[Rfam]
RNA: drz-agam-1 ribozyme
Nucleotides: 079
Base pairs, nucleotide, nucleotide: 012079013078014077016075017074018073019072020071021033022032023031044066045065050060051059052058
Number, partner (000 for none) and nucleotide at each position: 001000u002000a003000c004000u005000a006000c007000c008000a009000a010000a011000c012079c013078c014077u015000a016075c017074c018073u019072c020071g021033a022032c023031c024000u025000c026000u027000a028000c029000g030000u031023g032022g033021u034000g035000a036000c037000c038000g039000c040000u041000g042000u043000g044066a045065g046000c047000u048000c049000u050060u051059u052058c053000u054000u055000a056000a057000c058052g059051a060050a061000u062000a063000u064000u065045u066044u067000c068000a069000g070000a071020c072019g073018g074017g075016g076000a077014a078013g079012g